[Rfam]
RNA sequence: CGACGGAUUGGAGAUGGCAUUCCUCCAUUAACCAACCGCUGCGCCCGUAGCAGCUGAUGAUGCCUACAGAAAC
Numbered sequence: 001c002g003a004c005g006g007a008u009u010g011g012a013g014a015u016g017g018c019a020u021u022c023c024u025c026c027a028u029u030a031a032c033c034a035a036c037c038g039c040u041g042c043g044c045c046c047g048u049a050g051c052a053g054c055u056g057a058u059g060a061u062g063c064c065u066a067c068a069g070a071a072a073c
Base pairs, nucleotide, nucleotide: 010026011025012024013023016064017063018062019061020060021059038054039053040052041051